[Rfam]
RNA sequence: UAGGGGAGUCAGGGUUCGGACCCUCUCCCCAAACCCAGGGUAACUCUUAAAGUGGAGGGAA
Numbered sequence: 001u002a003g004g005g006g007a008g009u010c011a012g013g014g015u016u017c018g019g020a021c022c023c024u025c026u027c028c029c030c031a032a033a034c035c036c037a038g039g040g041u042a043a044c045u046c047u048u049a050a051a052g053u054g055g056a057g058g059g060a061a
Stems, first nucleotide, its partner, number of pairs: 008041003012036004016031001018029002023059005
Gag/pol translational readthrough site: a 61-nucleotide RNA sequence from Acinonyx jubatus. The organism belongs to Acinonyx, within Eukaryota. Its family is annotated with viral translational readthrough in the Gene Ontology. On this family, see ten Dam et al., Virus Genes 1990: "RNA pseudoknots: translational frameshifting and readthrough on viral RNAs". It scores 70 bits against the family's covariance model. Pairs were carried over by alignment from the consensus structure, which is taken from published work.